[Rfam]
RNA sequence: AGAAAAGCAGGGGUUUGUUUUGUCCAUAAACCCCUAAAUUUUACGGAAAUUAUAUCCACUGUUUUUGGGUGAACCUCUGUUCCUUGAUGAUUACAGAAGGUUCAGUAAACAAUAAUCUAUUG
Number, nucleotide and partner (000 for none) at each position: 001a000002g000003a000004a000005a041006a040007g039008c000009a000010g000011g033012g032013g000014u030015u029016u028017g027018u000019u000020u000021u000022g000023u000024c000025c000026a000027u017028a016029a015030a014031c000032c012033c011034c000035u000036a000037a000038a000039u007040u006041u005042u000043a000044c000045g000046g000047a000048a000049a000050u000051u000052a000053u000054a000055u000056c000057c000058a113059c000060u111061g110062u109063u108064u000065u000066u000067g000068g000069g000070u104071g103072a102073a101074c100075c099076u098077c000078u000079g000080u000081u000082c000083c000084u000085u000086g000087a000088u000089g000090a000091u000092u000093a000094c000095a000096g000097a000098a076099g075100g074101u073102u072103c071104a070105g000106u000107a000108a063109a062110c061111a060112a000113u058114a000115a000116u000117c000118u000119a000120u000121u000122g000

This 122-nucleotide RNA from Musa balbisiana belongs to the Rfam family "Small nucleolar RNA snoR74". The match comes from Rfam's covariance-model search (65 bits). The literature on the family includes a 2002 paper in Curr Biol by Marker et al., "Experimental RNomics: identification of 140 candidates for small non-messenger RNAs in the plant Arabidopsis thaliana". Rfam 15.1 lists 1,404 matches to the family in 223 species. Rfam links the family to the GO terms nucleolus and RNA processing. The family's RNA type in Rfam is H/ACA-box small nucleolar RNA. Taxonomically the source falls in Musa (Eukaryota, Viridiplantae, commelinids, Musaceae).